c-di-AMP riboswitch aptamer (ydaO/yuaA leader): a 129-nucleotide sequence from Actinomadura sp. WAC 06369.
RNA sequence: CGCGCACGGCCGCCCGCGGAGCCGGGGACCCACCAGUUCUUUCGGGGUGAAUCGGCCUGCCCCCAGGCCGUAGGGCGGCUUCCACGCCCGAACCCGUCAGCUAACCCGGUAGGCGGAAUGGAAGCCAAG
Numbered sequence: 001c002g003c004g005c006a007c008g009g010c011c012g013c014c015c016g017c018g019g020a021g022c023c024g025g026g027g028a029c030c031c032a033c034c035a036g037u038u039c040u041u042u043c044g045g046g047g048u049g050a051a052u053c054g055g056c057c058u059g060c061c062c063c064c065a066g067g068c069c070g071u072a073g074g075g076c077g078g079c080u081u082c083c084a085c086g087c088c089c090g091a092a093c094c095c096g097u098c099a100g101c102u103a104a105c106c107c108g109g110u111a112g113g114c115g116g117a118a119u120g121g122a123a124g125c126c127a128a129g
Stems, first nucleotide, its partner, number of pairs: 001018004021110006031044001045095003053070004073089004